[Rfam]
RNA sequence: CGCUGAUUGGAGUAAUUCAUUCAGUGAUUAAGCAGAAGUCAGCAGACGGCAUAGUAGCCAAAUGCCCAUCGUAAUGGUUGGGACACGGUGAAGGCC
Number, nucleotide and partner (000 for none) at each position: 001c026002g025003c000004u023005g022006a021007u000008u019009g018010g017011a016012g000013u000014a000015a000016u011017u010018c009019a008020u000021u006022c005023a004024g000025u002026g001027a000028u000029u000030a000031a000032g000033c000034a000035g000036a000037a000038g047039u046040c045041a000042g000043c000044a000045g040046a039047c038048g096049g095050c094051a000052u000053a000054g000055u000056a000057g089058c088059c087060a000061a000062a000063u000064g000065c082066c081067c080068a000069u000070c000071g000072u000073a000074a000075u000076g000077g000078u000079u000080g067081g066082g065083a000084c000085a000086c000087g059088g058089u057090g000091a000092a000093g000094g050095c049096c048
Shown here is a 96-nucleotide RNA from Photobacterium profundum, a member of the family "Group II catalytic intron D1-D4-1". Its family is annotated with Group II intron splicing in the Gene Ontology. The organism belongs to Photobacterium, within Bacteria. A reference for the family is Bonen and Vogel (2001), "The ins and outs of group II introns", Trends Genet. The family has 237 seed sequences and 2,508 matches in Rfam 15.1. Group II introns are found in rRNA, tRNA and mRNA of organelles in fungi, plants and protists, and also in mRNA in bacteria.